Rfam assigns this 120-nucleotide sequence from Microlunatus soli to the family "SAM (S-adenosyl methionine) riboswitch aptamer".
The base pairs follow the family's consensus structure, which is taken from published work.
Gene Ontology terms of the family: S-adenosylmethionine metabolic process and regulation of gene expression.
SAM-IV is a mRNA element that regulates gene expression via direct sensing of S-adenosylmethionine (SAM or AdoMet).
Lineage of the source: Bacteria > Actinomycetota > Actinomycetes > Propionibacteriaceae > Microlunatus.
RNA sequence: CGUCAAGAGCGUCAGCGCCAAGCCCCGGCUUGCUGACCGGCAACCCUCCUCCGCGGCGGGGUGCCCCGGGUGAAGACAUGGCUGUACGGCCCAUCCGGGCGGUAGUGGCAAGUGCGGGCC
Dot-bracket structure: .(((....(.((((((....((......)).)))))))(((..(((.((.....))..))).))).........)))...(((..((.((((....)))).))...)))...........